The family of this 600-nucleotide part of an RNA from Trichonephila clavipes is "Eukaryotic small subunit ribosomal RNA". The literature on the family includes a 2001 paper in Science by Yusupov et al., "Crystal structure of the ribosome at 5.5 A resolution". Taxonomically the source falls in Trichonephila (Eukaryota, Metazoa, Eumetazoa, Protostomia).
RNA sequence: AGCAUAUGCUUGUCUCAAAGAUUAAGCCAUGCACGUCUCAGUACAUGCCGCUAAUAUAAAAGGCGAAACCGCAAAUGGCUCAUUAAAUCAGUCACGGUUCAUUGGAUCGUAACGCGUUACUUGGAUAACUGUAGUAAUUCUAGAGCUAAUACAUGCAGCCGAGCUCCGAGCGCCCUCUCGGGGGCAGGACGAGCGCUUUUAUUAGAUUCUUCCCCACGGUCUCCGGACCGUCGAAGUGACCGAAGCUGAGUAACUUUGCAGAUCGCACGGGCCCGCCCCGGCGACGCAUCCUUCAAGUGUCUGCCUUAUCAACUGUCGACGGUAGGUUAUUCGCCUACCGUGGUCGCCACGGGUGACGGGGAAUCAGGGUUCGAUUCCGGAGAGGGAGCCUGAGAAACGGCUACCACAUCUAAGGAAGGCAGCAGGCACGCAAAUUACCCAAUCCCGGCUCGGGGAGGUAGUGACGAAAAAUAACGACGCUGGACUCUACGAGACCCAGUCGUCGGAAUGAGUGCGCUCUAAACCCUCGACGCGAGGACCCACCGGAGGGCAAGACUAAUGCCAGCCGCUGCGGUAAUUUUAGCUCCGGUAGCGUAUACU
Numbered sequence: 001a002g003c004a005u006a007u008g009c010u011u012g013u014c015u016c017a018a019a020g021a022u023u024a025a026g027c028c029a030u031g032c033a034c035g036u037c038u039c040a041g042u043a044c045a046u047g048c049c050g051c052u053a054a055u056a057u058a059a060a061a062g063g064c065g066a067a068a069c070c071g072c073a074a075a076u077g078g079c080u081c082a083u084u085a086a087a088u089c090a091g092u093c094a095c096g097g098u099u100c101a102u103u104g105g106a107u108c109g110u111a112a113c114g115c116g117u118u119a120c121u122u123g124g125a126u127a128a129c130u131g132u133a134g135u136a137a138u139u140c141u142a143g144a145g146c147u148a149a150u151a152c153a154u155g156c157a158g159c160c161g162a163g164c165u166c167c168g169a170g171c172g173c174c175c176u177c178u179c180g181g182g183g184g185c186a187g188g189a190c191g192a193g194c195g196c197u198u199u200u201a202u203u204a205g206a207u208u209c210u211u212c213c214c215c216a217c218g219g220u221c222u223c224c225g226g227a228c229c230g231u232c233g234a235a236g237u238g239a240c241c242g243a244a245g246c247u248g249a250g251u252a253a254c255u256u257u258g259c260a261g262a263u264c265g266c267a268c269g270g271g272c273c274c275g276c277c278c279c280g281g282c283g284a285c286g287c288a289u290c291c292u293u294c295a296a297g298u299g300u301c302u303g304c305c306u307u308a309u310c311a312a313c314u315g316u317c318g319a320c321g322g323u324a325g326g327u328u329a330u331u332c333g334c335c336u337a338c339c340g341u342g343g344u345c346g347c348c349a350c351g352g353g354u355g356a357c358g359g360g361g362a363a364u365c366a367g368g369g370u371u372c373g374a375u376u377c378c379g380g381a382g383a384g385g386g387a388g389c390c391u392g393a394g395a396a397a398c399g400g401c402u403a404c405c406a407c408a409u410c411u412a413a414g415g416a417a418g419g420c421a422g423c424a425g426g427c428a429c430g431c432a433a434a435u436u437a438c439c440c441a442a443u444c445c446c447g448g449c450u451c452g453g454g455g456a457g458g459u460a461g462u463g464a465c466g467a468a469a470a471a472u473a474a475c476g477a478c479g480c481u482g483g484a485c486u487c488u489a490c491g492a493g494a495c496c497c498a499g500u501c502g503u504c505g506g507a508a509u510g511a512g513u514g515c516g517c518u519c520u521a522a523a524c525c526c527u528c529g530a531c532g533c534g535a536g537g538a539c540c541c542a543c544c545g546g547a548g549g550g551c552a553a554g555a556c557u558a559a560u561g562c563c564a565g566c567c568g569c570u571g572c573g574g575u576a577a578u579u580u581u582a583g584c585u586c587c588g589g590u591a592g593c594g595u596a597u598a599c600u
Stems, first nucleotide, its partner, number of pairs: 001600002004597007013469001015467002019462001020429001026427003030424003035072002041069002047064002079382003089303003094298002098296002104291004120155001122153002129145002132142003163194004199253005214238001219228003263284004268280004305353003312344003319341008357379004361372004384405002387402003407418001409416002435460001437459003443455005475505003479500005485493003512533002516528001543589006556583004565572002